A member of the RNA family "ZMP/ZTP riboswitch aptamer (pfl RNA motif)" from Micromonospora krabiensis, 90 nucleotides long. A search with the family's covariance model found it, with a score of 53 bits. On this family, see Jones and Ferre-D'Amare, Nat Struct Mol Biol 2015: "Recognition of the bacterial alarmone ZMP through long-distance association of two RNA subdomains". Rfam 15.1 lists 3,295 matches to the family in 2,545 species. The family's consensus secondary structure is taken from published work.
RNA sequence: UCGGCGGGCCGUGACUGGCGCGUGGGGAUGGAGAACCAUCGGGGAGCGGCCCCGUCAUGAGGACGUCUGCCGAGCGCCUGGGCCUUCCGU
Numbered sequence: 001u002c003g004g005c006g007g008g009c010c011g012u013g014a015c016u017g018g019c020g021c022g023u024g025g026g027g028a029u030g031g032a033g034a035a036c037c038a039u040c041g042g043g044g045a046g047c048g049g050c051c052c053c054g055u056c057a058u059g060a061g062g063a064c065g066u067c068u069g070c071c072g073a074g075c076g077c078c079u080g081g082g083c084c085u086u087c088c089g090u
Stems, first nucleotide, its partner, number of pairs: 003055001006052007015043002017078005028039004069083003